[Rfam]
RNA sequence: GGGAUCGAUGAUGACUGCUGGAGGUGUCUGAGUGAGGACGGUGACUGCCUCUGGAUCUGAGGUCCUU
Number, nucleotide and partner (000 for none) at each position: 001g000002g065003g064004a063005u062006c061007g000008a000009u000010g000011a000012u000013g000014a000015c000016u000017g000018c000019u000020g000021g000022a000023g000024g000025u000026g000027u000028c000029u000030g000031a000032g000033u000034g000035a000036g000037g000038a000039c000040g000041g000042u000043g000044a000045c000046u000047g000048c000049c000050u000051c000052u000053g000054g000055a000056u000057c000058u000059g000060a000061g006062g005063u004064c003065c002066u000067u000
RNA: Small nucleolar RNA SNORD113/SNORD114 family
Organism: Sciurus vulgaris